[Rfam]
RNA sequence: CCUCCCAAGCCUAUCAACGAUGCUCAAACAGGGAGGU
Dot-bracket structure: ((((((.(((...........)))......)))))).
Numbered sequence: 001c002c003u004c005c006c007a008a009g010c011c012u013a014u015c016a017a018c019g020a021u022g023c024u025c026a027a028a029c030a031g032g033g034a035g036g037u
Stems, first nucleotide, its partner, number of pairs: 001036006008024003